[Rfam]
RNA sequence: AUAAUAUGCUAAGCGCCAGAACUGCGGUGCAGCCGGUAUCGCAGUUGACGAGGAAAGGGUUAAUCGAAAGUAUUCGGCGGGUGCCCUUCGGUCACAAGUGGGUUGAUCGUCAGCAGGCUGUUAAAACAUACGGGCGACCGUAUCGACAGAGCAGUUAUGCGUAACGCAC
Number, nucleotide and partner (000 for none) at each position: 001a000002u000003a000004a000005u000006a000007u000008g000009c000010u000011a000012a000013g000014c000015g000016c000017c000018a000019g000020a046021a045022c044023u043024g042025c041026g040027g039028u000029g037030c000031a000032g000033c000034c000035g000036g000037u029038a000039u027040c026041g025042c024043a023044g022045u021046u020047g000048a000049c000050g000051a000052g000053g000054a000055a088056a087057g086058g085059g084060u000061u000062a000063a000064u077065c076066g075067a074068a000069a000070g000071u000072a000073u000074u067075c066076g065077g064078c000079g000080g000081g000082u000083g000084c059085c058086c057087u056088u055089c109090g108091g107092u106093c105094a104095c000096a000097a000098g000099u000100g000101g000102g000103u000104u094105g093106a092107u091108c090109g089110u000111c000112a000113g000114c159115a158116g156117g155118c154119u153120g000121u000122u000123a000124a000125a000126a000127c000128a143129u142130a141131c140132g139133g138134g000135c000136g000137a000138c133139c132140g131141u130142a129143u128144c000145g000146a000147c000148a000149g000150a000151g000152c000153a119154g118155u117156u116157a000158u115159g114160c000161g000162u000163a000164a000165c000166g000167c000168a000169c000
Annotation: This 169-nucleotide sequence from Butyricicoccus sp. TM10-16AC belongs to the Rfam family "glmS glucosamine-6-phosphate activated ribozyme aptamer". The match comes from Rfam's covariance-model search (100 bits). Its family is annotated with catalytic activity and regulation of gene expression in the Gene Ontology.